This 114-nucleotide RNA from Phaseolus vulgaris belongs to the Rfam family "Small nucleolar RNA Z278". The organism belongs to Phaseolus, within Eukaryota.
RNA sequence: GCUGAUGAUGAUUUAAUCCAACUUUAUGAGGUGCUGUGGAGCCAAGACCCUUUUUAAGGGAGAACCUACUUGGUGAAGCUUCAUUCAUAUGACAUCAUCGGAUUUUACUGAGGC
Numbered sequence: 001g002c003u004g005a006u007g008a009u010g011a012u013u014u015a016a017u018c019c020a021a022c023u024u025u026a027u028g029a030g031g032u033g034c035u036g037u038g039g040a041g042c043c044a045a046g047a048c049c050c051u052u053u054u055u056a057a058g059g060g061a062g063a064a065c066c067u068a069c070u071u072g073g074u075g076a077a078g079c080u081u082c083a084u085u086c087a088u089a090u091g092a093c094a095u096c097a098u099c100g101g102a103u104u105u106u107a108c109u110g111a112g113g114c
Stems, first nucleotide, its partner, number of pairs: 001114003048060005
A reference for the family is Chen et al. (2003), "The high diversity of snoRNAs in plants: identification and comparative study of 120 snoRNA genes from Oryza sativa", Nucleic Acids Res. The family's consensus secondary structure was predicted with PFOLD. The family's RNA type in Rfam is C/D-box small nucleolar RNA. snoZ278 is a C/D box small nucleolar RNA. Its methylation guide targets have not been reported.